Shown here is a 178-nucleotide sequence from Limnoraphis robusta, a member of the family "Antisense RNA which regulates isiA expression". The literature on the family includes a 2006 paper in Proc Natl Acad Sci U S A by Duhring et al., "An internal antisense RNA regulates expression of the photosynthesis gene isiA".

RNA sequence: GAUAGCCAUAAAUAAUAAACGGAUCAAGGGUAGGAUGGUUAAUUGUGCGAACCGUUUGGGUUGUGGCAUCGUAAAGUCCGCCCCAAAACAUGGCUUUUGCCGCCAACAAUAACGCCCCAGCACCCAAAAAUAACAGGUGAUGCCCUAAAAUAAUCCCCAGUUGUUUGGCGUUGUUCCA
Number, nucleotide and partner (000 for none) at each position: 001g000002a000003u000004a000005g000006c000007c000008a000009u000010a000011a000012a000013u000014a000015a000016u000017a000018a000019a000020c000021g000022g000023a000024u000025c000026a000027a000028g000029g000030g000031u000032a000033g000034g000035a000036u000037g000038g000039u000040u000041a000042a000043u000044u000045g000046u000047g000048c000049g000050a000051a000052c000053c000054g000055u000056u000057u000058g000059g000060g000061u000062u000063g000064u000065g000066g000067c000068a000069u000070c000071g000072u000073a000074a000075a000076g000077u000078c000079c000080g000081c000082c000083c000084c000085a000086a000087a000088a000089c000090a000091u000092g000093g000094c000095u000096u000097u000098u000099g000100c000101c000102g000103c000104c000105a000106a000107c000108a000109a000110u000111a000112a000113c000114g000115c000116c000117c000118c000119a000120g000121c000122a000123c000124c000125c000126a000127a000128a000129a000130a000131u000132a000133a000134c000135a000136g175137g174138u173139g172140a171141u170142g000143c000144c000145c168146u167147a166148a165149a000150a000151u000152a000153a000154u000155c000156c000157c000158c000159a000160g000161u000162u000163g000164u000165u148166u147167g146168g145169c000170g141171u140172u139173g138174u137175u136176c000177c000178a000